[Rfam]
RNA sequence: CUCUUUCAAGGUGAUGGUGAUCCACCUUUUCCAACCGCCACGUUUUUUGUGGAUGAUGACGCCUGAUAUGCU
Numbered sequence: 001c002u003c004u005u006u007c008a009a010g011g012u013g014a015u016g017g018u019g020a021u022c023c024a025c026c027u028u029u030u031c032c033a034a035c036c037g038c039c040a041c042g043u044u045u046u047u048u049g050u051g052g053a054u055g056a057u058g059a060c061g062c063c064u065g066a067u068a069u070g071c072u
Stems, first nucleotide, its partner, number of pairs: 010026004016063004021058001038052005